Shown here is a 73-nucleotide RNA from Dictyostelium discoideum, a member of the family "tRNA". NCBI's taxonomy places the organism under Eukaryota, Amoebozoa, Eumycetozoa, Dictyosteliales, Dictyostelium. Gene Ontology term of the family: triplet codon-amino acid adaptor activity. It is one of the family's seed sequences.

RNA sequence: GGGGAAGUAGCUCAGAUGGUAGAGCGCUCGCUUAGCAUGCGAGAGGUAAAGGGUUCGAUACCCUUCUUCCUCA
Numbered sequence: 001g002g003g004g005a006a007g008u009a010g011c012u013c014a015g016a017u018g019g020u021a022g023a024g025c026g027c028u029c030g031c032u033u034a035g036c037a038u039g040c041g042a043g044a045g046g047u048a049a050a051g052g053g054u055u056c057g058a059u060a061c062c063c064u065u066c067u068u069c070c071u072c073a
Base pairs, nucleotide, nucleotide: 001072002071003070004069005068006067007066010025011024012023013022027043028042029041030040031039049065050064051063052062053061